The family of this 56-nucleotide RNA sequence from Salvelinus namaycush is "U7 small nuclear RNA".
Pairs were carried over by alignment from the consensus structure, which was predicted with PFOLD.
NCBI's taxonomy places the organism under Eukaryota, Deuterostomia, Gnathostomata, Osteoglossocephalai, Salvelinus.
The literature on the family includes a 1994 paper in Nucleic Acids Res by Spycher et al., "3' end processing of mouse histone pre-mRNA: evidence for additional base-pairing between U7 snRNA and pre-mRNA".
The match comes from Rfam's covariance-model search (35 bits).
RNA sequence: AGGUUAUUAGCUCUUGUAGUAUUUCUACAGUAGGUUUCCUCAAAGAGAAAGCCCCC
Numbered sequence: 001a002g003g004u005u006a007u008u009a010g011c012u013c014u015u016g017u018a019g020u021a022u023u024u025c026u027a028c029a030g031u032a033g034g035u036u037u038c039c040u041c042a043a044a045g046a047g048a049a050a051g052c053c054c055c056c
Stems, first nucleotide, its partner, number of pairs: 033053005039047003